Background:
A member of the RNA family "S15-Methanomicrobia ribosomal protein leader", 80 nucleotides long. Rfam classes the family as a cis-regulatory leader. For this family Rfam cites "Discovery of 20 novel ribosomal leader candidates in bacteria and archaea" (Eckert and Weinberg, BMC Microbiol, 2020). Rfam's curators put it in the seed alignment.
RNA sequence: AGCACUUUUUGAAUAGUGCUGGCAGAAGUAAGUCCGACUCGUGCCCCAACGGGGCACUGCCCUUUGUGGCUGGGGAUUAC
Numbered sequence: 001a002g003c004a005c006u007u008u009u010u011g012a013a014u015a016g017u018g019c020u021g022g023c024a025g026a027a028g029u030a031a032g033u034c035c036g037a038c039u040c041g042u043g044c045c046c047c048a049a050c051g052g053g054g055c056a057c058u059g060c061c062c063u064u065u066g067u068g069g070c071u072g073g074g075g076a077u078u079a080c
Base pairs, nucleotide, nucleotide: 001020002019003018004017005016006015028080029079030078031077034075035074041057042056043055044054045053059070060069061068